[Rfam]
RNA sequence: CUCUCAUUCAAUGGGGAGUAGCCUGCCGCUUUGCGGGCGUUGCAUCAACAUACUUGGCAGCAUGCCAUGGUGCAACGGAUAACAAGCAUUCAAAAUUGUUAUUU
Number, nucleotide and partner (000 for none) at each position: 001c000002u000003c000004u000005c000006a000007u000008u000009c000010a000011a000012u000013g000014g000015g000016g000017a000018g000019u000020a000021g000022c000023c000024u000025g000026c036027c035028g034029c000030u000031u000032u000033g000034c028035g027036g026037g000038c077039g076040u075041u074042g073043c072044a071045u070046c069047a068048a000049c000050a000051u000052a000053c000054u000055u067056g066057g065058c064059a063060g000061c000062a000063u059064g058065c057066c056067a055068u047069g046070g045071u044072g043073c042074a041075a040076c039077g038078g103079a102080u101081a100082a099083c098084a097085a000086g000087c000088a000089u000090u000091c000092a000093a000094a000095a000096u000097u084098g083099u082100u081101a080102u079103u078104u000